The record is a 73-nucleotide sequence from Zea mays, which matches "Small nucleolar RNA U54" in Rfam. The family's RNA type in Rfam is C/D-box small nucleolar RNA. About the family: U54 is a C/D box small nucleolar RNA, which acts as a methylation guide for 18S ribosomal RNA in plants. Lineage of the source: Eukaryota > Streptophyta > Petrosaviidae > Andropogonodae > Zea. Gene Ontology terms of the family: nucleolus and RNA processing.
RNA sequence: UGCUCAAUGUUCAACCAUGGUAAUAUAUGCUAUUCUGAUCUACACAAGGAUGUCAUCAAUAUUUCUGAGAGCG
Numbered sequence: 001u002g003c004u005c006a007a008u009g010u011u012c013a014a015c016c017a018u019g020g021u022a023a024u025a026u027a028u029g030c031u032a033u034u035c036u037g038a039u040c041u042a043c044a045c046a047a048g049g050a051u052g053u054c055a056u057c058a059a060u061a062u063u064u065c066u067g068a069g070a071g072c073g
Stems, first nucleotide, its partner, number of pairs: 001073005